This 378-nucleotide RNA sequence from Compostimonas suwonensis belongs to the Rfam family "Bacterial RNase P class A". The family's RNA type in Rfam is ribozyme. It scores 293 bits against the family's covariance model. Lineage of the source: Bacteria > Bacillati > Actinomycetes > Micrococcales > Compostimonas. Rfam links the family to the GO terms dimeric ribonuclease P complex, ribonuclease P activity and tRNA processing.

RNA sequence: UGGGUCGGCAAGACGGCCGCGUCGUCAGCACUCCUGGAGUGCCGGCGCCGAGGAACGUCCGGGCUCCACAGAGCAGGGCGGUGGGUAACACCCACCCGGGGCAACCCGCGAGACAGUGCCACAGAAAACAGACCGCCCGUCGCGUGCGACGGGUAAGGGUGAAACGGUGGUGUAAGAGACCACCAGCGACCGGGGCGACCCGGCCGGCUCGGUAAACCUCGCCCGGAGCAAGGUCAGACAGGGAACGCCAAGGCUGCUCGCCGAGUUCCCGGGUAGACCGCUAGAGGGCUGCGGCAACGUAGUCCCGAGAUAGAUGGCCGUCCAGUGCGAUGUCUGACAUCGUGCGAACAGAACCCGGCGUAUCAGCCGGCCCAUUCC
Numbered sequence: 001u002g003g004g005u006c007g008g009c010a011a012g013a014c015g016g017c018c019g020c021g022u023c024g025u026c027a028g029c030a031c032u033c034c035u036g037g038a039g040u041g042c043c044g045g046c047g048c049c050g051a052g053g054a055a056c057g058u059c060c061g062g063g064c065u066c067c068a069c070a071g072a073g074c075a076g077g078g079c080g081g082u083g084g085g086u087a088a089c090a091c092c093c094a095c096c097c098g099g100g101g102c103a104a105c106c107c108g109c110g111a112g113a114c115a116g117u118g119c120c121a122c123a124g125a126a127a128a129c130a131g132a133c134c135g136c137c138c139g140u141c142g143c144g145u146g147c148g149a150c151g152g153g154u155a156a157g158g159g160u161g162a163a164a165c166g167g168u169g170g171u172g173u174a175a176g177a178g179a180c181c182a183c184c185a186g187c188g189a190c191c192g193g194g195g196c197g198a199c200c201c202g203g204c205c206g207g208c209u210c211g212g213u214a215a216a217c218c219u220c221g222c223c224c225g226g227a228g229c230a231a232g233g234u235c236a237g238a239c240a241g242g243g244a245a246c247g248c249c250a251a252g253g254c255u256g257c258u259c260g261c262c263g264a265g266u267u268c269c270c271g272g273g274u275a276g277a278c279c280g281c282u283a284g285a286g287g288g289c290u291g292c293g294g295c296a297a298c299g300u301a302g303u304c305c306c307g308a309g310a311u312a313g314a315u316g317g318c319c320g321u322c323c324a325g326u327g328c329g330a331u332g333u334c335u336g337a338c339a340u341c342g343u344g345c346g347a348a349c350a351g352a353a354c355c356c357g358g359c360g361u362a363u364c365a366g367c368c369g370g371c372c373c374a375u376u377c378c
Base pairs, nucleotide, nucleotide: 001374002373003372004371005370006369007368008367009366011363012322013321014320015319016318017317018316020050021049023047024046025045026044028042029041030040031039055361056360057359059358060357061356062355063354064228065227066226067225071259072258073257074256076224077223078222079221080220081095082094083093084092085091096110097108098107099106100105111219112218116217117216118213119212120211133158134157135154136153137152138151139150140149141148142147166184167183168182169181170180171179186208187206188205190203191202192201193200194199232279233278234277235276241270242269243268244267245266246265252262253261254260286305287304288303289302290301291300292299293298